[Rfam]
RNA sequence: AAUAUAGAAGCGGGCAGAUGCCACUAGUGAAUCAGGUCAGGACAGGAAUGUAGCAGCCUUAAGCUAGUCAGGUAUUGUGCUCGUUUUUGUUUUAUC
Numbered sequence: 001a002a003u004a005u006a007g008a009a010g011c012g013g014g015c016a017g018a019u020g021c022c023a024c025u026a027g028u029g030a031a032u033c034a035g036g037u038c039a040g041g042a043c044a045g046g047a048a049u050g051u052a053g054c055a056g057c058c059u060u061a062a063g064c065u066a067g068u069c070a071g072g073u074a075u076u077g078u079g080c081u082c083g084u085u086u087u088u089g090u091u092u093u094a095u096c
Stems, first nucleotide, its partner, number of pairs: 004090011015077001017076006023068006034059004042051003
Dot-bracket structure: ...((((((((((((.((((((((((((.....((((....(((....)))....))))...))))))..)))))))..)))))))))))......
RNA: Bacterial small signal recognition particle RNA
Organism: Oenococcus oeni